RNA sequence: GGGCAGAUUCAGAUAAGAGACAGGGAUAAGGUAGAGCAUGAGAUGGAUCAAUCAACAGAGAGCGUGGAGCUGUUGUUGCUCUUCCCAUGCACUGCCUCUUCCCUGGCUCUCCUUUUCUCCUCUCUUA
Numbered sequence: 001g002g003g004c005a006g007a008u009u010c011a012g013a014u015a016a017g018a019g020a021c022a023g024g025g026a027u028a029a030g031g032u033a034g035a036g037c038a039u040g041a042g043a044u045g046g047a048u049c050a051a052u053c054a055a056c057a058g059a060g061a062g063c064g065u066g067g068a069g070c071u072g073u074u075g076u077u078g079c080u081c082u083u084c085c086c087a088u089g090c091a092c093u094g095c096c097u098c099u100u101c102c103c104u105g106g107c108u109c110u111c112c113u114u115u116u117c118u119c120c121u122c123u124c125u126u127a
Base pairs, nucleotide, nucleotide: 017109018108019107021105022104023103024102025101026100029097030096031095032094033093034092036090037089038088039087040086042085046081047080
RNA: MIR408 microRNA precursor family
Organism: Tetracentron sinense